[Rfam]
RNA: Guanidine-II riboswitch aptamer (mini-ykkC)
Organism: Phasianus colchicus
RNA sequence: CCAUAGGGACGACCCUAUAGGGACAGCCAACCCCAUAGGGACGGCCCCA
Numbered sequence: 001c002c003a004u005a006g007g008g009a010c011g012a013c014c015c016u017a018u019a020g021g022g023a024c025a026g027c028c029a030a031c032c033c034c035a036u037a038g039g040g041a042c043g044g045c046c047c048c049a
Stems, first nucleotide, its partner, number of pairs: 001020001003018006036049001038047003